Archaeal large subunit ribosomal RNA: a 261-nucleotide part of an RNA from Methanopyrus kandleri. Lineage of the source: Archaea > Methanobacteriati > Methanobacteriota > Methanopyrus > Methanopyrus kandleri.
RNA sequence: GGCCGCCUGAGGGGAAGGACCGCCUAGUACGAGAGGAACGGCGGUCCGCGGCCUCUGGUGGACCGGCUGUCCGGCAGGGCAAGCCGGGUAGCUACGCCGUAUCCGAUAAGGGCUGAAAGCAUCCAGGCCCGAAGCGGUCCCCGAAAAUAGGCGGCCGUUGAGGCCUCGGGUAAAAGACCCGGUUGAUGGGGCGGGGGUGUAAGGCCCAAGGGGCCGUUGGGCCCCGAGGGCCUGAGCCCACCGCUCCCAAUCGGCCGAUGG
Numbered sequence: 001g002g003c004c005g006c007c008u009g010a011g012g013g014g015a016a017g018g019a020c021c022g023c024c025u026a027g028u029a030c031g032a033g034a035g036g037a038a039c040g041g042c043g044g045u046c047c048g049c050g051g052c053c054u055c056u057g058g059u060g061g062a063c064c065g066g067c068u069g070u071c072c073g074g075c076a077g078g079g080c081a082a083g084c085c086g087g088g089u090a091g092c093u094a095c096g097c098c099g100u101a102u103c104c105g106a107u108a109a110g111g112g113c114u115g116a117a118a119g120c121a122u123c124c125a126g127g128c129c130c131g132a133a134g135c136g137g138u139c140c141c142c143g144a145a146a147a148u149a150g151g152c153g154g155c156c157g158u159u160g161a162g163g164c165c166u167c168g169g170g171u172a173a174a175a176g177a178c179c180c181g182g183u184u185g186a187u188g189g190g191g192c193g194g195g196g197g198u199g200u201a202a203g204g205c206c207c208a209a210g211g212g213g214c215c216g217u218u219g220g221g222c223c224c225c226g227a228g229g230g231c232c233u234g235a236g237c238c239c240a241c242c243g244c245u246c247c248c249a250a251u252c253g254g255c256c257g258a259u260g261g
Stems, first nucleotide, its partner, number of pairs: 001156008011142004017047008048100005056094003063087005068081005103137003110130005162256004166182005187249003190245005195239003203232005210225005